[Rfam]
Nucleotides: 063
Stems, first nucleotide, its partner, number of pairs: 008029006034056008
Number, partner (000 for none) and nucleotide at each position: 001000u002000g003000u004000c005000u006000c007000c008029u009028c010027c011026a012025u013024c014000c015000u016000c017000c018000u019000u020000c021000u022000u023000u024013g025012g026011u027010g028009g029008a030000a031000u032000u033000u034056g035055g036054c037053g038052c039051a040050a041049u042000c043000c044000c045000c046000a047000a048000g049041a050040u051039u052038g053037c054036g055035c056034u057000u058000u059000u060000u061000u062000u063000u